[Rfam]
RNA sequence: UGACGGGGGCCCGCACAAGCGGUGGAGCAUGUGGUUUAAUUCGAUGCAACGCGAAAAACCUUACCUACUCUUGACAUCCAGAGAACUAGGCAGAAAUGCCUGGGUACCCUUAAAGGGUACUCUGAGACAGGUGCUGCAUGGCUGUCGUCAGCUCGUGUUGUGAAAUGUUGGGUUAAGUCCCGCAACGAGCGCAACCCUCAUCCUUUGUUGCCAGCGAUUUAGUCGGGAACUCAAAGGAGACUGCCAGUGAUAAACCGGAGGAAGGUGGGGAUGACGUCAAGUCAUCAUGGCCCUUACGAGUAGGGCUACACACGUGCUACAAUAGCGCGCACAAAGAGAAGCAAUCUCGCGAGAGUCAGCAAACCUCAUAAAAUGCGUUUUAGUCCGGAUUGGAGUCUGCAACUCGACUCCAUGAAGUCGGAAUCGCUAGUAAUCGUGGAUCAGAAUGCCACGGUGAAUACGUUCCCGGGCCUUGUACACACCGCCCGUCACACCAUGGGAGUGGGUUGUAAAAGAAGUAGGUAGCUUAACCUUCGGGAGGGCGCUUACCACUUUAUGAUUCAUGACUGGGGUGAAGUCGUAACAAGG
Numbered sequence: 001u002g003a004c005g006g007g008g009g010c011c012c013g014c015a016c017a018a019g020c021g022g023u024g025g026a027g028c029a030u031g032u033g034g035u036u037u038a039a040u041u042c043g044a045u046g047c048a049a050c051g052c053g054a055a056a057a058a059c060c061u062u063a064c065c066u067a068c069u070c071u072u073g074a075c076a077u078c079c080a081g082a083g084a085a086c087u088a089g090g091c092a093g094a095a096a097u098g099c100c101u102g103g104g105u106a107c108c109c110u111u112a113a114a115g116g117g118u119a120c121u122c123u124g125a126g127a128c129a130g131g132u133g134c135u136g137c138a139u140g141g142c143u144g145u146c147g148u149c150a151g152c153u154c155g156u157g158u159u160g161u162g163a164a165a166u167g168u169u170g171g172g173u174u175a176a177g178u179c180c181c182g183c184a185a186c187g188a189g190c191g192c193a194a195c196c197c198u199c200a201u202c203c204u205u206u207g208u209u210g211c212c213a214g215c216g217a218u219u220u221a222g223u224c225g226g227g228a229a230c231u232c233a234a235a236g237g238a239g240a241c242u243g244c245c246a247g248u249g250a251u252a253a254a255c256c257g258g259a260g261g262a263a264g265g266u267g268g269g270g271a272u273g274a275c276g277u278c279a280a281g282u283c284a285u286c287a288u289g290g291c292c293c294u295u296a297c298g299a300g301u302a303g304g305g306c307u308a309c310a311c312a313c314g315u316g317c318u319a320c321a322a323u324a325g326c327g328c329g330c331a332c333a334a335a336g337a338g339a340a341g342c343a344a345u346c347u348c349g350c351g352a353g354a355g356u357c358a359g360c361a362a363a364c365c366u367c368a369u370a371a372a373a374u375g376c377g378u379u380u381u382a383g384u385c386c387g388g389a390u391u392g393g394a395g396u397c398u399g400c401a402a403c404u405c406g407a408c409u410c411c412a413u414g415a416a417g418u419c420g421g422a423a424u425c426g427c428u429a430g431u432a433a434u435c436g437u438g439g440a441u442c443a444g445a446a447u448g449c450c451a452c453g454g455u456g457a458a459u460a461c462g463u464u465c466c467c468g469g470g471c472c473u474u475g476u477a478c479a480c481a482c483c484g485c486c487c488g489u490c491a492c493a494c495c496a497u498g499g500g501a502g503u504g505g506g507u508u509g510u511a512a513a514a515g516a517a518g519u520a521g522g523u524a525g526c527u528u529a530a531c532c533u534u535c536g537g538g539a540g541g542g543c544g545c546u547u548a549c550c551a552c553u554u555u556a557u558g559a560u561u562c563a564u565g566a567c568u569g570g571g572g573u574g575a576a577g578u579c580g581u582a583a584c585a586a587g588g
Base pairs, nucleotide, nucleotide: 001479002478003476004475005474007473008472009471010470011469012468013467015463016462019427020426021425022424023423024320026318027317028316029315030314031313032312033311034309035308040055041054042053043052064304065303066302067301068300069299070298077127078126079124080123081122082121083120086103087102088101089100090099091098092097105119106118107117108116130293131292133291134290135289136288139287140286141282142281143280144278146276147275151190152189153188154187155186156185157166158165159164169182170181171180172179196270197269198268199267201238202237203236204235205234206233207232211227212226215225216224217223241261242260244258245257247255248254324379325378326377327376328375329374336367337366338365341360342359346355347354348353386417391412392411393410394409395408396407397406433455434454435453436452437451438450439449482587484584487580488579492574493573494572495571497569498568499567502564503563504562505561506560507559508558509557510556511555512554513553518549519548520547521546522545523544525543526542527541528540531538532537